The family of this 86-nucleotide RNA sequence from Solanum commersonii is "MIR8024 microRNA precursor family". Rfam 15.1 lists 661 matches to the family in 8 species. Pairs were carried over by alignment from the consensus structure, which was predicted with RNAalifold. Rfam links the family to the GO terms miRNA-mediated post-transcriptional gene silencing and RISC complex.
[Rfam]
RNA sequence: UUGAAGAAUUUGAAGACUUCAACUUGCAUACUUGAAGGAUUUGAAGAAUUCUACUUGCAUACUUGAAGAAUUUGAAGACUUUAACU
Numbered sequence: 001u002u003g004a005a006g007a008a009u010u011u012g013a014a015g016a017c018u019u020c021a022a023c024u025u026g027c028a029u030a031c032u033u034g035a036a037g038g039a040u041u042u043g044a045a046g047a048a049u050u051c052u053a054c055u056u057g058c059a060u061a062c063u064u065g066a067a068g069a070a071u072u073u074g075a076a077g078a079c080u081u082u083a084a085c086u
Stems, first nucleotide, its partner, number of pairs: 001084006009076006017068005025059004032053001034051003